[Rfam]
Record summary:
Rfam assigns this 245-nucleotide RNA sequence from Actinomycetospora cinnamomea to the family "Actinobacteria sRNA Ms_IGR-5". NCBI's taxonomy places the organism under Bacteria, Bacillati, Actinomycetes, Pseudonocardiales, Actinomycetospora.
Nucleotides: 245
Stems, first nucleotide, its partner, number of pairs: 014058005060135003064131002067128004156237011168188006
Number, partner (000 for none) and nucleotide at each position: 001000a002000c003000a004000c005000g006000g007000g008000a009000a010000a011000g012000g013000a014058g015057g016056u017055g018054g019000u020000c021000c022000g023000g024000c025000g026000u027000u028000g029000a030000u031000g032000a033000a034000c035000g036000a037000c038000a039000g040000g041000a042000c043000u044000c045000g046000u047000g048000a049000g050000g051000u052000g053000u054018c055017c056016g057015u058014c059000a060135g061134c062133u063000a064131g065130c066000c067128g068127u069126u070125c071000g072000a073000a074000g075000g076000c077000c078000g079000u080000g081000g082000a083000g084000u085000g086000g087000c088000c089000g090000g091000a092000c093000c094000g095000c096000g097000g098000g099000c100000a101000g102000u103000g104000a105000u106000c107000c108000c109000a110000c111000u112000g113000a114000c115000c116000c117000c118000c119000g120000c121000g122000g123000c124000a125070g126069g127068g128067c129000g130065g131064c132000c133062a134061g135060c136000g137000a138000a139000u140000c141000c142000a143000a144000g145000g146000c147000a148000g149000g150000a151000c152000a153000c154000c155000a156237g157236c158235c159234c160233c161232c162231g163230g164229a165228g166227c167000c168188c169187c170186c171185g172184a173183c174000c175000c176000u177000c178000g179000u180000c181000c182000a183173g184172u185171c186170g187169g188168g189000g190000c191000c192000c193000g194000c195000c196000c197000a198000c199000c200000c201000g202000g203000c204000a205000u206000c207000g208000c209000c210000g211000g212000g213000g214000c215000g216000g217000g218000c219000g220000g221000g222000a223000g224000a225000u226000c227166g228165c229164u230163c231162c232161g233160g234159g235158g236157g237156c238000c239000u240000u241000c242000c243000u244000g245000u

By type it is a small RNA. The base pairs follow the family's consensus structure.